[Rfam]
This 134-nucleotide RNA from Apaloderma vittatum belongs to the Rfam family "Small nucleolar RNA SNORA15". Its family is annotated with RNA processing and nucleolus in the Gene Ontology. It is annotated as an H/ACA-box small nucleolar RNA. Pairs were carried over by alignment from the consensus structure, which was predicted with RNAfold. The literature on the family includes a 2001 paper in EMBO J by Huttenhofer et al., "RNomics: an experimental approach that identifies 201 candidates for novel, small, non-messenger RNAs in mouse". About the family: ACA15 is a member of the H/ACA class of snoRNA that guide the sites of modification of uridines to pseudouridines.

RNA sequence: GCAUGGAUGAAUUCUGCACUAGCUUUUCUCAGUAGCUAAUGCAGUCAGACACUAUGCCAGAAUAAAUUCCUUUUUCAUACCGAUGGGUGUGCUUUUUGUCCAAGAACGGGCACGCCUUUGGAAUGGGGACACAU
Numbered sequence: 001g002c003a004u005g006g007a008u009g010a011a012u013u014c015u016g017c018a019c020u021a022g023c024u025u026u027u028c029u030c031a032g033u034a035g036c037u038a039a040u041g042c043a044g045u046c047a048g049a050c051a052c053u054a055u056g057c058c059a060g061a062a063u064a065a066a067u068u069c070c071u072u073u074u075u076c077a078u079a080c081c082g083a084u085g086g087g088u089g090u091g092c093u094u095u096u097u098g099u100c101c102a103a104g105a106a107c108g109g110g111c112a113c114g115c116c117u118u119u120g121g122a123a124u125g126g127g128g129a130c131a132c133a134u
Stems, first nucleotide, its partner, number of pairs: 001057006014044005070127003083119001085117010